[Rfam]
Annotation
This 78-nucleotide RNA sequence from Anaerofustis stercorihominis belongs to the Rfam family "S10-Clostridia ribosomal protein leader". The literature on the family includes a 2020 paper in BMC Microbiol by Eckert and Weinberg, "Discovery of 20 novel ribosomal leader candidates in bacteria and archaea". A search with the family's covariance model found it, with a score of 52 bits. The family's consensus secondary structure is taken from published work. Rfam classes the family as a cis-regulatory leader. Taxonomically the source falls in Anaerofustis stercorihominis (Bacteria, Bacillati, Clostridia, Eubacteriales).
RNA sequence: GGAAUGCGUUGAAGCGGGAGGUUGCCGUGAGAACGGGUUUUUCCGUGGAGUAUGUCACCAUCUAGAAUGGGGCGGCAU
Numbered sequence: 001g002g003a004a005u006g007c008g009u010u011g012a013a014g015c016g017g018g019a020g021g022u023u024g025c026c027g028u029g030a031g032a033a034c035g036g037g038u039u040u041u042u043c044c045g046u047g048g049a050g051u052a053u054g055u056c057a058c059c060a061u062c063u064a065g066a067a068u069g070g071g072g073c074g075g076c077a078u
Stems, first nucleotide, its partner, number of pairs: 014046003018043004025036004053077004061072003
Dot-bracket structure: .............(((.((((...((((....))))...)))))))......((((....(((......))).)))).